[Rfam]
A member of the RNA family "Small nucleolar SNORD12/SNORD106" from Synaphobranchus kaupii, 93 nucleotides long. Clan: SNORD12 clan. Pairs were carried over by alignment from the consensus structure, which was predicted with RNAalifold. The organism belongs to Synaphobranchus, within Eukaryota.

RNA sequence: GUUGUGGUUAAUGAUGUUCAGUCUUUUUUCCCCGUCUUAUCGACCAUGGUGACUUGUUGUUGAAAUUAAGCCAACAUUGUCUGAAACCACAUU
Numbered sequence: 001g002u003u004g005u006g007g008u009u010a011a012u013g014a015u016g017u018u019c020a021g022u023c024u025u026u027u028u029u030c031c032c033c034g035u036c037u038u039a040u041c042g043a044c045c046a047u048g049g050u051g052a053c054u055u056g057u058u059g060u061u062g063a064a065a066u067u068a069a070g071c072c073a074a075c076a077u078u079g080u081c082u083g084a085a086a087c088c089a090c091a092u093u
Stems, first nucleotide, its partner, number of pairs: 001093001003091007